[Rfam]
RNA: Alpha operon ribosome binding site
RNA sequence: CAAUUUAGUUAUUGGGUAAGUAUCCUAUCGGGCUUUUUAGGCUAAUGACUAUAAAUUAUAAGGAGUACUGUUAAUGGCCCGUAUCGCUGGCAUUAACAUCCCUGAA
Number, nucleotide and partner (000 for none) at each position: 001c000002a000003a000004u053005u000006u051007a050008g049009u048010u047011a046012u045013u044014g000015g000016g000017u000018a000019a000020g000021u000022a000023u000024c090025c089026u000027a000028u000029c081030g080031g079032g078033c000034u000035u000036u000037u105038u104039a103040g000041g000042c000043u000044a013045a012046u011047g010048a009049c008050u007051a006052u000053a004054a000055a000056u000057u000058a000059u000060a000061a000062g000063g000064a000065g000066u000067a000068c000069u000070g000071u000072u000073a000074a000075u000076g000077g000078c032079c031080c030081g029082u000083a000084u000085c000086g000087c000088u000089g025090g024091c000092a000093u000094u000095a000096a000097c000098a000099u000100c000101c000102c000103u039104g038105a037106a000